[Rfam]
RNA sequence: GAGCUUCGCUGCGGGCUACUCCUCCUCCCAAGCCCAAGGCGGAUAAAGUGCCUGCGCAUCCUCCUCCCAGCGCAGGUACCUCUCAGUCGCCCGUCGGGUCCUCCCCCCGACGGGCGAUCAGA
Numbered sequence: 001g002a003g004c005u006u007c008g009c010u011g012c013g014g015g016c017u018a019c020u021c022c023u024c025c026u027c028c029c030a031a032g033c034c035c036a037a038g039g040c041g042g043a044u045a046a047a048g049u050g051c052c053u054g055c056g057c058a059u060c061c062u063c064c065u066c067c068c069a070g071c072g073c074a075g076g077u078a079c080c081u082c083u084c085a086g087u088c089g090c091c092c093g094u095c096g097g098g099u100c101c102u103c104c105c106c107c108c109g110a111c112g113g114g115c116g117a118u119c120a121g122a
Base pairs, nucleotide, nucleotide: 007041008040009039013035014034015033016032017031048079049078050077051076052075053074054073055072056071057070087117088116089115090114091113092112093111094110095109096108097107
Dot-bracket structure: ......(((...(((((.............)))))...)))......((((((((((............)))))))))).......(((((((((((.........))))))))))).....